[Rfam]
Rfam assigns this 67-nucleotide sequence from Bombyx mori to the family "mir-2774 microRNA precursor family".

RNA sequence: ACAAUAAUCGGCACGUCGGUCUACUGACAAAUUUAACCCGCUCGGUGAAUGAUCUGCCCUUUAUCAU
Dot-bracket structure: ...(((...(((..(((..(.((((((..............)))))).).)))..)))...)))...
Lineage of the source: Eukaryota > Hexapoda > Neoptera > Obtectomera > Bombyx. It scores 57 bits against the family's covariance model.